[Rfam]
RNA sequence: AUGAAGGUAUAGGGAGAGAGUUAUUAAGGUAACCACCGAAGAAGUAAAUCUUUCAGGUACAAAGGACCUAUAUUGGACG
Number, nucleotide and partner (000 for none) at each position: 001a000002u000003g000004a000005a000006g074007g073008u072009a071010u070011a069012g068013g067014g000015a000016g000017a000018g000019a000020g033021u032022u031023a030024u000025u000026a000027a000028g000029g000030u023031a022032a021033c020034c000035a058036c057037c056038g054039a053040a000041g000042a052043a051044g050045u000046a000047a000048a000049u000050c044051u043052u042053u039054c038055a000056g037057g036058u035059a000060c000061a000062a000063a000064g000065g000066a000067c013068c012069u011070a010071u009072a008073u007074u006075g000076g000077a000078c000079g000
Description
Rfam assigns this 79-nucleotide RNA sequence from Cetobacterium sp. 2A to the family "Glycine riboswitch aptamer". NCBI's taxonomy places the organism under Bacteria, Fusobacteriati, Fusobacteriota, Fusobacteriaceae, Cetobacterium. Rfam links the family to the GO term glycine biosynthetic process. The base pairs follow the family's consensus structure.